[Rfam]
RNA sequence: GGGGAUCUUCGGAGCCCUUUAACCUCGGGUUCUACGGAACCCCUAGAUGACGGAAGACAGAAA
Numbered sequence: 001g002g003g004g005a006u007c008u009u010c011g012g013a014g015c016c017c018u019u020u021a022a023c024c025u026c027g028g029g030u031u032c033u034a035c036g037g038a039a040c041c042c043c044u045a046g047a048u049g050a051c052g053g054a055a056g057a058c059a060g061a062a063a
Stems, first nucleotide, its partner, number of pairs: 001018004006014001008012001027042006